[Rfam]
RNA: RNase MRP
RNA sequence: CGAAUCUUCCAUGCUUGUUUCUCGGGGUCACAAACGAGUUCCUGGUAACUCUAUAAUUCACCCUGGGUAAAGUCCCCGGGCCUAGGAUAGAAAGUAUCAAGGUGUGAAAAGGUGCAAAACAAAAACAAACUGUGUUUGUGAUUGUUUGUGCUUCGCCUAUAUUCCGAGGAAAUCCGCCAGACGCCAUAAACGAAGAGAGCAAUCGAGUUUUCGUGCGUUCGGUGUCCACGGAAACGUGCCAGAGUAUUAUCAGAUAUAUACAAGCAUGAGUAGCUUUAGAGCGAAUUCGUGCACGGAAUGGGGCUUAUAUUGGGAAAUUU
Numbered sequence: 001c002g003a004a005u006c007u008u009c010c011a012u013g014c015u016u017g018u019u020u021c022u023c024g025g026g027g028u029c030a031c032a033a034a035c036g037a038g039u040u041c042c043u044g045g046u047a048a049c050u051c052u053a054u055a056a057u058u059c060a061c062c063c064u065g066g067g068u069a070a071a072g073u074c075c076c077c078g079g080g081c082c083u084a085g086g087a088u089a090g091a092a093a094g095u096a097u098c099a100a101g102g103u104g105u106g107a108a109a110a111g112g113u114g115c116a117a118a119a120c121a122a123a124a125a126c127a128a129a130c131u132g133u134g135u136u137u138g139u140g141a142u143u144g145u146u147u148g149u150g151c152u153u154c155g156c157c158u159a160u161a162u163u164c165c166g167a168g169g170a171a172a173u174c175c176g177c178c179a180g181a182c183g184c185c186a187u188a189a190a191c192g193a194a195g196a197g198a199g200c201a202a203u204c205g206a207g208u209u210u211u212c213g214u215g216c217g218u219u220c221g222g223u224g225u226c227c228a229c230g231g232a233a234a235c236g237u238g239c240c241a242g243a244g245u246a247u248u249a250u251c252a253g254a255u256a257u258a259u260a261c262a263a264g265c266a267u268g269a270g271u272a273g274c275u276u277u278a279g280a281g282c283g284a285a286u287u288c289g290u291g292c293a294c295g296g297a298a299u300g301g302g303g304c305u306u307a308u309a310u311u312g313g314g315a316a317a318u319u320u
Base pairs, nucleotide, nucleotide: 002320003319004318005317007315008314009313010312011311014264015263016262017261018260022066023065024064025063026062027061028060036051037050038049039048040047070306071305072304074303075302076301077300086098087097088096089095151169152168153167154166155165172225173224177222178221180219181218182217185215186214187213188210189209190208191207198203266290267289268288269287270286271285